[Rfam]
RNA sequence: AUUAAACCGAUGAGGGAGAAGAGUACCUCUACAUGAUUCUUUAGAGAGAGCUGCGAUGGUGGGAUGCAGUAAGAUAGUGUUUUGGGAAUGGACUCCUGAGGGCGUGAGGAAAUAGCUGUUAGCUAGAGUAUUGCACGACGUAAGACAUACGUUAGUUGUCAGGGAUAUGAUAGUAUCCUGUAAGAGCAUGAGUAUUCAUGAAUUCAAGGUGGCACCGCGGAAUAAAAUUUUCGUCCUUGAU
Dot-bracket structure: ......((......((((.......((...(.......(((........(((((...........))))))))......)...)).......))))...)).((((.((.....................)).)))).(((.......)))...................................(((((....))))).....((((.......(((((........)))))))))...
Description: Rfam assigns this 241-nucleotide RNA sequence from Pseudobutyrivibrio xylanivorans to the family "T-box leader". It is annotated as a cis-regulatory leader. The source organism's lineage runs through Bacteria, Clostridia, Lachnospirales, Pseudobutyrivibrio and Pseudobutyrivibrio xylanivorans. A reference for the family is Grundy et al. (1994), "Interaction between the acceptor end of tRNA and the T box stimulates antitermination in the Bacillus subtilis tyrS gene: a new role for the discriminator base", J Bacteriol.